[Rfam]
RNA sequence: CAUAAUCCUAUUUACUAUGCACAAGUAAAGACCGAUUAUGAAUCCACGUGGUAGAUGCACAGUUAGGUUCGCUGUGAGUGCACAUCUAGUAGCAACUAACCAAAAGCAAGUAUAGAUGGGAAUAAGCUAUACCUCGAUAGGCUUAAUGAGGUUCUUGACAGUCUGAUACUAACUGAACAAUAAGUAUCU
Numbered sequence: 001c002a003u004a005a006u007c008c009u010a011u012u013u014a015c016u017a018u019g020c021a022c023a024a025g026u027a028a029a030g031a032c033c034g035a036u037u038a039u040g041a042a043u044c045c046a047c048g049u050g051g052u053a054g055a056u057g058c059a060c061a062g063u064u065a066g067g068u069u070c071g072c073u074g075u076g077a078g079u080g081c082a083c084a085u086c087u088a089g090u091a092g093c094a095a096c097u098a099a100c101c102a103a104a105a106g107c108a109a110g111u112a113u114a115g116a117u118g119g120g121a122a123u124a125a126g127c128u129a130u131a132c133c134u135c136g137a138u139a140g141g142c143u144u145a146a147u148g149a150g151g152u153u154c155u156u157g158a159c160a161g162u163c164u165g166a167u168a169c170u171a172a173c174u175g176a177a178c179a180a181u182a183a184g185u186a187u188c189u
Stems, first nucleotide, its partner, number of pairs: 001040007011029005053087004058076006100119003107157004131152005165188006
RNA: RAGATH-7 RNA